Annotation
The record is a 62-nucleotide sequence from Natronolimnobius baerhuensis, which matches "eL15-Euryarchaeota ribosomal protein leader" in Rfam. On this family, see Eckert and Weinberg, BMC Microbiol 2020: "Discovery of 20 novel ribosomal leader candidates in bacteria and archaea".
RNA sequence: CCUGUUCGGUGCGACGCCCACAGGUCGGGAUGUGAUCUCGCGUAUCGGGAUUGAACCAGGAA
Numbered sequence: 001c002c003u004g005u006u007c008g009g010u011g012c013g014a015c016g017c018c019c020a021c022a023g024g025u026c027g028g029g030a031u032g033u034g035a036u037c038u039c040g041c042g043u044a045u046c047g048g049g050a051u052u053g054a055a056c057c058a059g060g061a062a
Stems, first nucleotide, its partner, number of pairs: 001024005027057002034052007
Dot-bracket structure: (((((..............)))))..((.....(((((((.....)))))))...)).....